The record is a 209-nucleotide sequence from Paenibacillus contaminans, which matches "c-di-AMP riboswitch aptamer (ydaO/yuaA leader)" in Rfam. A search with the family's covariance model found it, with a score of 55 bits. The organism belongs to Paenibacillus, within Bacteria.
RNA sequence: ACAAUAAGAAAGUCGAAUCCGGCUCAGCAAAAGUGCCGGUACGGGGGACGAUUUAUUAGAGCGCGGUCUUAACAGCUUUUGGCGUGUCUCAACAUGCGGCUGCUUCGAUCAUGUGUUCAGGGGUGAAUGUUCGCGGCUUGUCCGCAUUCUAGGGAGAACCUCUUUCCCGAACCCGACAACUAACCUCGGAGACGACAAGGAGGAAAUCA
Number, nucleotide and partner (000 for none) at each position: 001a000002c000003a000004a000005u000006a000007a000008g000009a000010a000011a000012g193013u192014c191015g000016a000017a000018u000019c039020c038021g037022g036023c035024u000025c000026a000027g000028c000029a000030a000031a000032a000033g000034u000035g023036c022037c021038g020039g019040u000041a000042c188043g187044g186045g185046g184047g000048a000049c000050g000051a000052u119053u000054u000055a000056u000057u000058a000059g000060a000061g000062c000063g000064c000065g000066g000067u000068c000069u000070u000071a000072a000073c000074a000075g000076c000077u000078u000079u000080u000081g000082g000083c000084g000085u000086g000087u000088c000089u000090c000091a000092a000093c000094a000095u000096g000097c000098g000099g000100c000101u000102g000103c000104u000105u000106c000107g000108a000109u000110c000111a000112u000113g000114u000115g000116u000117u000118c000119a052120g000121g174122g173123g172124u000125g000126a000127a000128u000129g149130u000131u000132c000133g000134c000135g000136g000137c000138u000139u000140g000141u000142c000143c000144g000145c000146a000147u000148u000149c129150u000151a000152g168153g167154g166155a165156g000157a000158a000159c000160c000161u000162c000163u000164u000165u155166c154167c153168c152169g000170a000171a000172c123173c122174c121175g000176a000177c000178a000179a000180c000181u000182a000183a000184c046185c045186u044187c043188g042189g000190a000191g014192a013193c012194g000195a000196c000197a000198a000199g000200g000201a000202g000203g000204a000205a000206a000207u000208c000209a000